Shown here is a 132-nucleotide RNA sequence from Paenibacillus wynnii, a member of the family "c-di-AMP riboswitch aptamer (ydaO/yuaA leader)".

RNA sequence: AUUAACCAACUGCCGAAUUUCGUUUUGAAAACGGGGGAACCAAUCCGGGUGAAUUAUUCUUGUGUGCAAGAGAAUAUAGGGAACCUUUAACCGAAUCCUCAGCUAACUCCGUAGGCAUUGAAGGGAGAACAA
Numbered sequence: 001a002u003u004a005a006c007c008a009a010c011u012g013c014c015g016a017a018u019u020u021c022g023u024u025u026u027g028a029a030a031a032c033g034g035g036g037g038a039a040c041c042a043a044u045c046c047g048g049g050u051g052a053a054u055u056a057u058u059c060u061u062g063u064g065u066g067c068a069a070g071a072g073a074a075u076a077u078a079g080g081g082a083a084c085c086u087u088u089a090a091c092c093g094a095a096u097c098c099u100c101a102g103c104u105a106a107c108u109c110c111g112u113a114g115g116c117a118u119u120g121a122a123g124g125g126a127g128a129a130c131a132a
Stems, first nucleotide, its partner, number of pairs: 011117004018030003031112006047098003055076007079092002